[Rfam]
RNA sequence: UCCCCGCUUUUCCUCCCUGAGCGGGAGCCUUGAUGUGUGACAGCUAAUAGGCUUUCUAGCCCGGCUAUGCCUGGGCUUUUUUUU
Numbered sequence: 001u002c003c004c005c006g007c008u009u010u011u012c013c014u015c016c017c018u019g020a021g022c023g024g025g026a027g028c029c030u031u032g033a034u035g036u037g038u039g040a041c042a043g044c045u046a047a048u049a050g051g052c053u054u055u056c057u058a059g060c061c062c063g064g065c066u067a068u069g070c071c072u073g074g075g076c077u078u079u080u081u082u083u084u
Base pairs, nucleotide, nucleotide: 003025004024005023006022007021008020027052028051029050030049059076060075061074062073063072064071